[Rfam]
RNA: Manganese Mn2+ riboswitch aptamer (yybP-ykoY)
RNA sequence: GAACAUGUCAAAGGGGAGUAGCUCAUAAACAAAGUCGUCAUUACGGGAUGAAUGUCCCCGGCUUUGUUGGCAACGGAUAAUCAGUUGUU
Numbered sequence: 001g002a003a004c005a006u007g008u009c010a011a012a013g014g015g016g017a018g019u020a021g022c023u024c025a026u027a028a029a030c031a032a033a034g035u036c037g038u039c040a041u042u043a044c045g046g047g048a049u050g051a052a053u054g055u056c057c058c059c060g061g062c063u064u065u066g067u068u069g070g071c072a073a074c075g076g077a078u079a080a081u082c083a084g085u086u087g088u089u
Base pairs, nucleotide, nucleotide: 028068029067030066031065032064033063034062035061036060037059045058046057047056048055049054069089070088071087072086073085074084